A member of the RNA family "Histone 3' UTR stem-loop" from Conger conger, 45 nucleotides long. By type it is a cis-regulatory element.
[Rfam]
RNA sequence: CCAAAGGCUCUUUUAAGAGCCACUUAAACUGUCCAUAGAAAGCAA
Numbered sequence: 001c002c003a004a005a006g007g008c009u010c011u012u013u014u015a016a017g018a019g020c021c022a023c024u025u026a027a028a029c030u031g032u033c034c035a036u037a038g039a040a041a042g043c044a045a
Base pairs, nucleotide, nucleotide: 006021007020008019009018010017011016
It scores 36 bits against the family's covariance model. The base pairs follow the family's consensus structure, which is taken from published work.